Shown here is a 92-nucleotide RNA from Orycteropus afer, a member of the family "mir-1388 microRNA precursor family".
RNA sequence: CUCUGGGCAGCGCCUCCAGGACUGUCCCACCUGAGAAUGUGAGACUCCAGGGUCACUCUCAGGUUUGUCAGCCCGAGAGGUGCCGCCUUCCU
Numbered sequence: 001c002u003c004u005g006g007g008c009a010g011c012g013c014c015u016c017c018a019g020g021a022c023u024g025u026c027c028c029a030c031c032u033g034a035g036a037a038u039g040u041g042a043g044a045c046u047c048c049a050g051g052g053u054c055a056c057u058c059u060c061a062g063g064u065u066u067g068u069c070a071g072c073c074c075g076a077g078a079g080g081u082g083c084c085g086c087c088u089u090c091c092u
Stems, first nucleotide, its partner, number of pairs: 005089003008085001010083007019074002022071003026067001029064008038055002
Dot-bracket structure: ....((((.(((((((..((.(((.(..((((((((.((..............)).))))))))..).))).))..))))))).).)))...

The base pairs follow the family's consensus structure, which was predicted with RNAalifold. Rfam links the family to the GO terms miRNA-mediated post-transcriptional gene silencing and RISC complex.